A member of the RNA family "Small nucleolar RNA SNORD89" from Callorhinchus milii, 111 nucleotides long. Gene Ontology terms of the family: RNA processing and nucleolus. snoRNA HBII-289 belongs to the family of C/D snoRNAs. It is the human orthologue of the mouse MBII-289 and has no identified RNA target. The family's consensus secondary structure was predicted with RNAalifold. The match comes from Rfam's covariance-model search (51 bits).

RNA sequence: GACGAGGGAUGAUGACACAAAGGCCGAAUUGCAGAGCCGGGGCCCCAGGUGGUUCUCAGGUCUGGGCUCAGUGACAAAACUCCUGAAGCGACUCAUUAGUCUGACCUCAUC
Numbered sequence: 001g002a003c004g005a006g007g008g009a010u011g012a013u014g015a016c017a018c019a020a021a022g023g024c025c026g027a028a029u030u031g032c033a034g035a036g037c038c039g040g041g042g043c044c045c046c047a048g049g050u051g052g053u054u055c056u057c058a059g060g061u062c063u064g065g066g067c068u069c070a071g072u073g074a075c076a077a078a079a080c081u082c083c084u085g086a087a088g089c090g091a092c093u094c095a096u097u098a099g100u101c102u103g104a105c106c107u108c109a110u111c
Stems, first nucleotide, its partner, number of pairs: 001111002004108004014101003023032002033097002036094001043090001044088001048084002052069001055066004071082001073080001